CRISPR RNA direct repeat element: a 37-nucleotide sequence from Azospirillum thermophilum.
Lineage of the source: Bacteria > Pseudomonadota > Alphaproteobacteria > Rhodospirillales > Azospirillum.
RNA sequence: GUCAUCCUGAGCAGAAAUGCUCAGGCCUCAUUGAAGC
Numbered sequence: 001g002u003c004a005u006c007c008u009g010a011g012c013a014g015a016a017a018u019g020c021u022c023a024g025g026c027c028u029c030a031u032u033g034a035a036g037c
Stems, first nucleotide, its partner, number of pairs: 006025007